Rfam assigns this 450-nucleotide RNA sequence from Fulvimarina pelagi to the family "Bacterial RNase P class A". Gene Ontology terms of the family: tRNA processing, ribonuclease P activity and dimeric ribonuclease P complex. NCBI's taxonomy places the organism under Bacteria, Pseudomonadati, Pseudomonadota, Aurantimonadaceae, Fulvimarina pelagi. By type it is a ribozyme. Pairs were carried over by alignment from the consensus structure, which is taken from published work. Rfam describes the family as follows. Ribonuclease P (RNase P) is a ubiquitous endoribonuclease, found in archaea, bacteria and eukarya as well as chloroplasts and mitochondria.
RNA sequence: UCAGCUGGCUGGGCGGCCGCUCCCGUCAUGAGCCGAAAGGCGGCGGGAGAGGAAAGUCCGGGCUCCACGGAGAAACGGUGCCGGAUAACCUCCGGCGAGGGAAACCUCAGGGAAAGCGCCACAGAAAACAGACCGCCCCGCCUUCAGUUCGGCCGAGAGCCAUGGGAACGCAUGGGCGAUAGCCGGCCGCACUGAUGGCGGGGUAAGGGUGAAACGGUGGGGUAAGAGCCCACCGCGUCUUCGGUAACGAAGGCGGCACGGCAAGCCCCACCGGGAGCAAGACCGAAUAGGGACGGCGCGGAUGGCGCAAGCCUUCCAUCAGCUCCGGGACAGCCGUCCGGGUGGGUUGCUCGAGGCGUUCCGCAAGGAACGUCCCAGAGGAAUGGUCGCCGCGCAUGCGCCUUGACGGGUUCAUGCGUACAGAACCCGGCUUACAGGCCGGCUGACGCU
Numbered sequence: 001u002c003a004g005c006u007g008g009c010u011g012g013g014c015g016g017c018c019g020c021u022c023c024c025g026u027c028a029u030g031a032g033c034c035g036a037a038a039g040g041c042g043g044c045g046g047g048a049g050a051g052g053a054a055a056g057u058c059c060g061g062g063c064u065c066c067a068c069g070g071a072g073a074a075a076c077g078g079u080g081c082c083g084g085a086u087a088a089c090c091u092c093c094g095g096c097g098a099g100g101g102a103a104a105c106c107u108c109a110g111g112g113a114a115a116g117c118g119c120c121a122c123a124g125a126a127a128a129c130a131g132a133c134c135g136c137c138c139c140g141c142c143u144u145c146a147g148u149u150c151g152g153c154c155g156a157g158a159g160c161c162a163u164g165g166g167a168a169c170g171c172a173u174g175g176g177c178g179a180u181a182g183c184c185g186g187c188c189g190c191a192c193u194g195a196u197g198g199c200g201g202g203g204u205a206a207g208g209g210u211g212a213a214a215c216g217g218u219g220g221g222g223u224a225a226g227a228g229c230c231c232a233c234c235g236c237g238u239c240u241u242c243g244g245u246a247a248c249g250a251a252g253g254c255g256g257c258a259c260g261g262c263a264a265g266c267c268c269c270a271c272c273g274g275g276a277g278c279a280a281g282a283c284c285g286a287a288u289a290g291g292g293a294c295g296g297c298g299c300g301g302a303u304g305g306c307g308c309a310a311g312c313c314u315u316c317c318a319u320c321a322g323c324u325c326c327g328g329g330a331c332a333g334c335c336g337u338c339c340g341g342g343u344g345g346g347u348u349g350c351u352c353g354a355g356g357c358g359u360u361c362c363g364c365a366a367g368g369a370a371c372g373u374c375c376c377a378g379a380g381g382a383a384u385g386g387u388c389g390c391c392g393c394g395c396a397u398g399c400g401c402c403u404u405g406a407c408g409g410g411u412u413c414a415u416g417c418g419u420a421c422a423g424a425a426c427c428c429g430g431c432u433u434a435c436a437g438g439c440c441g442g443c444u445g446a447c448g449c450u
Stems, first nucleotide, its partner, number of pairs: 001446010011435001012391007020049008054433003058430005063277004076273005081095005096110001097108004111268002116266002118262003133208002135204008216234006235257001236255008281348004291339006324330002355374008